[Rfam]
RNA sequence: UACUGUAAAUGAUGAUUGUUUAAAAAAAUAACAUUGGGAAUCUCUCUGAAAAAUAAUGAAAGAAAUAUUUUUACUGAUGCAGUG
Numbered sequence: 001u002a003c004u005g006u007a008a009a010u011g012a013u014g015a016u017u018g019u020u021u022a023a024a025a026a027a028a029u030a031a032c033a034u035u036g037g038g039a040a041u042c043u044c045u046c047u048g049a050a051a052a053a054u055a056a057u058g059a060a061a062g063a064a065a066u067a068u069u070u071u072u073a074c075u076g077a078u079g080c081a082g083u084g
Base pairs, nucleotide, nucleotide: 001084002083003082004081005080006079007078